Source information:
Shown here is a 102-nucleotide RNA from Paenibacillus curdlanolyticus, a member of the family "S10-Clostridia ribosomal protein leader". The family's consensus secondary structure is taken from published work.
RNA sequence: ACGUUGCGAUGAUGUGAGAGGUUGCCGACACACCCGGCCCCUUUGCCAUGGGGCGUGUGAGACGGGUUUUCUCACGGAGUAUGUCCGAUAAAAAUUGGGCGA
Numbered sequence: 001a002c003g004u005u006g007c008g009a010u011g012a013u014g015u016g017a018g019a020g021g022u023u024g025c026c027g028a029c030a031c032a033c034c035c036g037g038c039c040c041c042u043u044u045g046c047c048a049u050g051g052g053g054c055g056u057g058u059g060a061g062a063c064g065g066g067u068u069u070u071c072u073c074a075c076g077g078a079g080u081a082u083g084u085c086c087g088a089u090a091a092a093a094a095u096u097g098g099g100c101g102a
Stems, first nucleotide, its partner, number of pairs: 014075003018071004025065003029061001082101007
On this family, see Eckert and Weinberg, BMC Microbiol 2020: "Discovery of 20 novel ribosomal leader candidates in bacteria and archaea". Lineage of the source: Bacteria > Bacillota > Paenibacillaceae > Paenibacillus > Paenibacillus curdlanolyticus.